[Rfam]
RNA sequence: AUUUCAUGCAGAGUGGUUGAGGGACGAGCCCUGAGACGCCACGACAACCGGACAGAACAUGCGUACCGGUGUCAACUCUCUCCUGGAAACAGGGAACAUGAGAU
Numbered sequence: 001a002u003u004u005c006a007u008g009c010a011g012a013g014u015g016g017u018u019g020a021g022g023g024a025c026g027a028g029c030c031c032u033g034a035g036a037c038g039c040c041a042c043g044a045c046a047a048c049c050g051g052a053c054a055g056a057a058c059a060u061g062c063g064u065a066c067c068g069g070u071g072u073c074a075a076c077u078c079u080c081u082c083c084u085g086g087a088a089a090c091a092g093g094g095a096a097c098a099u100g101a102g103a104u
Stems, first nucleotide, its partner, number of pairs: 001104008013042005021031003026080003043073004048069002052064002077096001082093004
The record is a 104-nucleotide sequence from Granulicella aggregans, which matches "SAM riboswitch aptamer (S box leader)" in Rfam. The match comes from Rfam's covariance-model search (69 bits). Rfam describes the family as follows. The SAM riboswitch is found upstream of a number of genes which code for proteins involved in methionine or cysteine biosynthesis in Gram-positive bacteria. Lineage of the source: Bacteria > Pseudomonadati > Acidobacteriota > Terriglobia > Granulicella.